[Rfam]
RNA sequence: GUGGAGGCUUCCAAAGGGAUCGCAUUGAUCUAAUUGAUCAUAUAUGUCAAACAUCGUCCGUACAGACAUGGCAGGUUAUAUAUGUAGUUGGAUCAUGCGAUCCCUUCGGACGUUUCCAU
Numbered sequence: 001g002u003g004g005a006g007g008c009u010u011c012c013a014a015a016g017g018g019a020u021c022g023c024a025u026u027g028a029u030c031u032a033a034u035u036g037a038u039c040a041u042a043u044a045u046g047u048c049a050a051a052c053a054u055c056g057u058c059c060g061u062a063c064a065g066a067c068a069u070g071g072c073a074g075g076u077u078a079u080a081u082a083u084g085u086a087g088u089u090g091g092a093u094c095a096u097g098c099g100a101u102c103c104c105u106u107c108g109g110a111c112g113u114u115u116c117c118a119u
Stems, first nucleotide, its partner, number of pairs: 001119005007113002010110003014106007022098004027094008
Dot-bracket structure: (((((.((.(((.(((((((.((((.((((((((....................................................)))))))))))).))))))).))).)).)))))
This 119-nucleotide RNA from Malus domestica belongs to the Rfam family "mir-393 microRNA precursor family".
Rfam's curators put it in the seed alignment.
Rfam 15.1 lists 1,052 matches to the family in 221 species.
The organism belongs to Malus, within Eukaryota.
Gene Ontology terms of the family: miRNA-mediated post-transcriptional gene silencing and RISC complex.